[Rfam]
RNA: Bacterial RNase P class A
RNA sequence: AGAGUAGGCGCAGGCAGUUGCAGAUCAGUUAUUAAGACUGGUUUGAGGAAAGUCCGGGCUCCCGAAAGACCAGACUUGCUGGAUAACGUCCAGUGCGAGUGAUCGUGAGGAUAGUGCCACAGAAAGAUACCGCCAAAACAAUUCAAAAUUAAAAAUUAAAAAUUUUGAAUUGAAUGGUAAGGGUGCAAAGGUGCGGUAAGAGCGCACCAGCAGUAUCGAGAGGUGCUGGCUCGGUAAACCCCGGUUGGGAGCAAGGACAGAGGAACUAUGGUUGGUCUUUUACCAGUUCUGUUAAACAAGAGCCGCUAGAGGCGUUUGGUGACAAGCGUCCCAGAUAGAUAACUGCCCUCGCAAGAGAACAGAACCCGGCUUAUGUCCUGCUCUCUCU
Numbered sequence: 001a002g003a004g005u006a007g008g009c010g011c012a013g014g015c016a017g018u019u020g021c022a023g024a025u026c027a028g029u030u031a032u033u034a035a036g037a038c039u040g041g042u043u044u045g046a047g048g049a050a051a052g053u054c055c056g057g058g059c060u061c062c063c064g065a066a067a068g069a070c071c072a073g074a075c076u077u078g079c080u081g082g083a084u085a086a087c088g089u090c091c092a093g094u095g096c097g098a099g100u101g102a103u104c105g106u107g108a109g110g111a112u113a114g115u116g117c118c119a120c121a122g123a124a125a126g127a128u129a130c131c132g133c134c135a136a137a138a139c140a141a142u143u144c145a146a147a148a149u150u151a152a153a154a155a156u157u158a159a160a161a162a163u164u165u166u167g168a169a170u171u172g173a174a175u176g177g178u179a180a181g182g183g184u185g186c187a188a189a190g191g192u193g194c195g196g197u198a199a200g201a202g203c204g205c206a207c208c209a210g211c212a213g214u215a216u217c218g219a220g221a222g223g224u225g226c227u228g229g230c231u232c233g234g235u236a237a238a239c240c241c242c243g244g245u246u247g248g249g250a251g252c253a254a255g256g257a258c259a260g261a262g263g264a265a266c267u268a269u270g271g272u273u274g275g276u277c278u279u280u281u282a283c284c285a286g287u288u289c290u291g292u293u294a295a296a297c298a299a300g301a302g303c304c305g306c307u308a309g310a311g312g313c314g315u316u317u318g319g320u321g322a323c324a325a326g327c328g329u330c331c332c333a334g335a336u337a338g339a340u341a342a343c344u345g346c347c348c349u350c351g352c353a354a355g356a357g358a359a360c361a362g363a364a365c366c367c368g369g370c371u372u373a374u375g376u377c378c379u380g381c382u383c384u385c386u387c388u
Stems, first nucleotide, its partner, number of pairs: 001384008010376003013347007021045009050372003054369005059251004068279002073246003077243002079093005094108001095106004109241002114239002116235003130182002132178003139172012190208006210230001211228007255304002263289002267285001270284003274280001311330008